[Rfam]
RNA sequence: AAGCGUCUUCAGGGCGGGGUGUAACUCCCCACCGGCGGUAGGUAAAGCAACAGCAUCGCGCUGAUUGGUCUUUAUAAGCCCGCGAGCGCCCAUGCAGCAAUGCGUGGGGUCAGCAGAUCUGGCACACAAACCAGAGCCGACGGUCAUAGUCCGGAUGAAAGAAGAUGUGU
Numbered sequence: 001a002a003g004c005g006u007c008u009u010c011a012g013g014g015c016g017g018g019g020u021g022u023a024a025c026u027c028c029c030c031a032c033c034g035g036c037g038g039u040a041g042g043u044a045a046a047g048c049a050a051c052a053g054c055a056u057c058g059c060g061c062u063g064a065u066u067g068g069u070c071u072u073u074a075u076a077a078g079c080c081c082g083c084g085a086g087c088g089c090c091c092a093u094g095c096a097g098c099a100a101u102g103c104g105u106g107g108g109g110u111c112a113g114c115a116g117a118u119c120u121g122g123c124a125c126a127c128a129a130a131c132c133a134g135a136g137c138c139g140a141c142g143g144u145c146a147u148a149g150u151c152c153g154g155a156u157g158a159a160a161g162a163a164g165a166u167g168u169g170u
Stems, first nucleotide, its partner, number of pairs: 003168008017029003031150002033139002035083004078137002086114002118135005141153003

Record summary
This 170-nucleotide RNA sequence from Alcaligenaceae bacterium 429 belongs to the Rfam family "FMN riboswitch aptamer (RFN element)". Pairs were carried over by alignment from the consensus structure, which is taken from published work. The source organism's lineage runs through Bacteria, Pseudomonadota, Betaproteobacteria, Burkholderiales and Alcaligenaceae. Gene Ontology term of the family: FMN binding.